[Rfam]
RNA sequence: GGCGAUAAACGUUGCGUGGAAUAAUCGUUACGGACCCGGGGGCAGUGCCCGGCGUCUCCACCACCAUCCGGUCCUUUGUCAGGGAUCAGGUCUUGGGGACGAAACAGGCUCGACGUGCGUGGUAAAGACGUAGCUUUUGCCCGGCAUUGUACCGCCGUUAUCGGGCUAAAUCACAAGUGCCAAUGACAAUGUCCGCGAGGACAUGGCGCUCGCUGCCUAG
Numbered sequence: 001g002g003c004g005a006u007a008a009a010c011g012u013u014g015c016g017u018g019g020a021a022u023a024a025u026c027g028u029u030a031c032g033g034a035c036c037c038g039g040g041g042g043c044a045g046u047g048c049c050c051g052g053c054g055u056c057u058c059c060a061c062c063a064c065c066a067u068c069c070g071g072u073c074c075u076u077u078g079u080c081a082g083g084g085a086u087c088a089g090g091u092c093u094u095g096g097g098g099a100c101g102a103a104a105c106a107g108g109c110u111c112g113a114c115g116u117g118c119g120u121g122g123u124a125a126a127g128a129c130g131u132a133g134c135u136u137u138u139g140c141c142c143g144g145c146a147u148u149g150u151a152c153c154g155c156c157g158u159u160a161u162c163g164g165g166c167u168a169a170a171u172c173a174c175a176a177g178u179g180c181c182a183a184u185g186a187c188a189a190u191g192u193c194c195g196c197g198a199g200g201a202c203a204u205g206g207c208g209c210u211c212g213c214u215g216c217c218u219a220g
Base pairs, nucleotide, nucleotide: 001141002140003139004138005137014131015130016129017128026119027118028117030116031115032114036052037051038050039049040048053101054100055099056098057097058096059095142157143156144155145154